[Rfam]
Rfam assigns this 68-nucleotide sequence from Columbina picui to the family "Small nucleolar RNA SNORD63".
snoRNA U63 is found in both humans and mice.
On this family, see Galardi et al., Mol Cell Biol 2002: "Purified box C/D snoRNPs are able to reproduce site-specific 2'-O-methylation of target RNA in vitro".
The base pairs follow the family's consensus structure, which was predicted with PFOLD.
Nucleotides: 068
Stems, first nucleotide, its partner, number of pairs: 001067004
Number, partner (000 for none) and nucleotide at each position: 001067g002066u003065g004064c005000u006000g007000u008000g009000a010000u011000g012000u013000a014000a015000c016000u017000g018000u019000c020000a021000a022000c023000a024000c025000a026000u027000c028000a029000u030000u031000c032000u033000g034000a035000a036000g037000a038000a039000c040000u041000g042000u043000g044000u045000g046000g047000a048000g049000a050000c051000c052000u053000u054000c055000u056000g057000u058000a059000a060000c061000u062000g063000a064004g065003c066002a067001c068000u